The family of this 234-nucleotide RNA from Mytilus edulis is "Small nucleolar RNA SNORA73 family".
[Rfam]
RNA sequence: CCAAUGUUGAUAUCCUGGCAUAUUGAUUUCUGUCAAACCAUGCUAGGCUCUGUCUUUGUGGCAUAUGGGAGCUGAAUGUCUCACAAGGACUUGAUGCAUAUUCCCGUUCCACAACAUUGGAUAUAAACCCAGGCUUGGACUGCUCUGUACAGGUCUGAACCCCAUAUAUUCCAUCACUUUCUCAUAGCUACUAUGUGGCAGUUACUGAGGAAGAAGACCAUAUGGGGAACAAUU
Number, nucleotide and partner (000 for none) at each position: 001c120002c119003a118004a117005u116006g115007u114008u000009g054010a053011u052012a051013u000014c047015c046016u045017g000018g043019c042020a041021u040022a000023u000024u000025g000026a000027u000028u000029u000030c000031u000032g000033u000034c000035a000036a000037a000038c000039c000040a021041u020042g019043c018044u000045a016046g015047g014048c000049u000050c000051u012052g011053u010054c009055u000056u000057u000058g112059u111060g110061g109062c000063a000064u000065a000066u000067g105068g104069g103070a102071g099072c000073u000074g000075a095076a000077u000078g091079u000080c000081u000082c000083a000084c000085a000086a000087g000088g000089a000090c000091u078092u000093g000094a000095u075096g000097c000098a000099u071100a000101u000102u070103c069104c068105c067106g000107u000108u000109c061110c060111a059112c058113a000114a007115c006116a005117u004118u003119g002120g001121a000122u000123a000124u000125a000126a000127a000128c000129c000130c000131a000132g000133g000134c000135u000136u000137g000138g000139a000140c000141u000142g000143c000144u000145c000146u000147g000148u000149a000150c000151a000152g000153g000154u000155c000156u000157g000158a000159a000160c000161c226162c225163c224164a223165u222166a221167u220168a000169u000170u000171c000172c000173a000174u000175c000176a000177c000178u212179u211180u210181c209182u208183c207184a000185u000186a000187g199188c198189u000190a196191c195192u000193a000194u000195g191196u190197g000198g188199c187200a000201g000202u000203u000204a000205c000206u000207g183208a182209g181210g180211a179212a178213g000214a000215a000216g000217a000218c000219c000220a167221u166222a165223u164224g163225g162226g161227g000228a000229a000230c000231a000232a000233u000234u000
Overview
Its family is annotated with nucleolus and RNA processing in the Gene Ontology. From the family's description: U17 (SNORA73A and SNORA73B) also known as E1 belongs to the H/ACA class of small nucleolar RNAs (snoRNAs). The source organism's lineage runs through Eukaryota, Metazoa, Lophotrochozoa, Autobranchia and Mytilus.